[Rfam]
RNA sequence: GCGGGCAUGGUGUAACAGACUAACACGGGAGGCUUCCACCCUCCAGACCCGAGUUUGAGUCUCGGUGCUCGCU
Dot-bracket structure: (((((((..((((.........)))).(((((.......)))))....(((((.......)))))))))))).
Shown here is a 73-nucleotide RNA from Oligella urethralis, a member of the family "tRNA". The family's consensus secondary structure is taken from published work. The family is grouped with related families in Rfam's "tRNA clan".